[Rfam]
The family of this 155-nucleotide RNA from Cupriavidus necator is "sbcD RNA". The source organism's lineage runs through Bacteria, Pseudomonadati, Pseudomonadota, Burkholderiaceae and Cupriavidus. It is annotated as a small RNA. The family's consensus secondary structure is taken from published work.
RNA sequence: CCUGCGGCCGAACCUGUGGGUUCGCGAAAUGGGUUGCUGUGCAGCGUGACCAUGCUGCACGAGGACGACUUUACGUCCUCAGCAUCGAGCAGCGCGCAAUUGUGCGCCGCUCCCUGAGUGCCACGCCCCCGGAAGGGGCGUGGCAUUGCAGGUUC
Numbered sequence: 001c002c003u004g005c006g007g008c009c010g011a012a013c014c015u016g017u018g019g020g021u022u023c024g025c026g027a028a029a030u031g032g033g034u035u036g037c038u039g040u041g042c043a044g045c046g047u048g049a050c051c052a053u054g055c056u057g058c059a060c061g062a063g064g065a066c067g068a069c070u071u072u073a074c075g076u077c078c079u080c081a082g083c084a085u086c087g088a089g090c091a092g093c094g095c096g097c098a099a100u101u102g103u104g105c106g107c108c109g110c111u112c113c114c115u116g117a118g119u120g121c122c123a124c125g126c127c128c129c130c131g132g133a134a135g136g137g138g139c140g141u142g143g144c145a146u147u148g149c150a151g152g153u154u155c
Base pairs, nucleotide, nucleotide: 009024010023011022012021013020036083037082038081039060040059041058042057043056044055045054046053047052061080062079063078064077065076066075067074087112088111089110090109094105095104096103097102113152114151115150116149117147118146119145120144121143122142123141124140125139126138127137128136129135